Rfam assigns this 80-nucleotide sequence from Hermetia illucens to the family "drz-agam-1 ribozyme". The organism belongs to Hermetia, within Eukaryota. Gene Ontology term of the family: catalytic activity. A reference for the family is Webb et al. (2009), "Widespread occurrence of self-cleaving ribozymes", Science.
[Rfam]
Nucleotides: 080
Stems, first nucleotide, its partner, number of pairs: 013080003017076001019074002022034001024032001045066007053059001
Number, partner (000 for none) and nucleotide at each position: 001000c002000u003000a004000u005000u006000a007000c008000c009000a010000a011000a012000c013080c014079c015078u016000g017076u018000c019074u020073c021000c022034a023000c024032c025000u026000c027000c028000u029000c030000g031000u032024g033000a034022u035000g036000c037000u038000a039000g040000c041000u042000g043000g044000a045066a046065g047064u048063u049062u050061u051060u052000u053059c054000c055000u056000a057000a058000u059053g060051g061050a062049a063048a064047g065046c066045u067000g068000c069000a070000g071000a072000c073020g074019g075000a076017g077000a078015a079014g080013g